[Rfam]
Nucleotides: 076
Stems, first nucleotide, its partner, number of pairs: 002075009
Number, partner (000 for none) and nucleotide at each position: 001000u002075a003074c004073a005072c006071a007070a008069a009068g010067c011000a012000c013000a014000u015000g016000a017000u018000g019000a020000c021000a022000a023000a024000a025000c026000a027000c028000u029000u030000a031000a032000a033000c034000u035000g036000a037000c038000u039000g040000u041000a042000u043000g044000a045000a046000g047000u048000a049000c050000a051000u052000u053000c054000a055000a056000u057000c058000c059000a060000a061000c062000a063000c064000u065000g066000a067010g068009c069008u070007u071006u072005g073004u074003g075002u076000c
The family of this 76-nucleotide sequence from Vireo altiloquus is "Small nucleolar RNA SNORD69". The organism belongs to Vireo, within Eukaryota. A reference for the family is Huttenhofer et al. (2001), "RNomics: an experimental approach that identifies 201 candidates for novel, small, non-messenger RNAs in mouse", EMBO J. snoRNA HBII-210 belongs to the C/D family of snoRNAs. It is the human orthologue of the mouse MBII-210 and is predicted to guide the 2'O-ribose methylation of large 28S rRNA on residue G4464.